This 66-nucleotide sequence from Pararhizobium antarcticum belongs to the Rfam family "S-element". This family represents a group of S-elements from p42d and related plasmids. The S-element has multiple functions and is believed to act as a negative regulator of repC transcription, be required for efficient replication and act as a translational enhancer of repC. The literature on the family includes a 2004 paper in Mol Microbiol by Venkova-Canova et al., "Two discrete elements are required for the replication of a repABC plasmid: an antisense RNA and a stem-loop structure". It scores 66 bits against the family's covariance model. Rfam links the family to the GO terms mRNA transcription and translation regulator activity. The source organism's lineage runs through Bacteria, Pseudomonadati, Pseudomonadota, Hyphomicrobiales and Pararhizobium.
[Rfam]
RNA sequence: UGUCAAGAGUUUUGGCGCCGUUUUGGUGAGCUGAUUUCUAUUGCCUAACCGAAGGUGAGAGAAAUG
Numbered sequence: 001u002g003u004c005a006a007g008a009g010u011u012u013u014g015g016c017g018c019c020g021u022u023u024u025g026g027u028g029a030g031c032u033g034a035u036u037u038c039u040a041u042u043g044c045c046u047a048a049c050c051g052a053a054g055g056u057g058a059g060a061g062a063a064a065u066g
Base pairs, nucleotide, nucleotide: 010062011061012059013058016057017056018055019054021053022052023051025049028046030044031043033041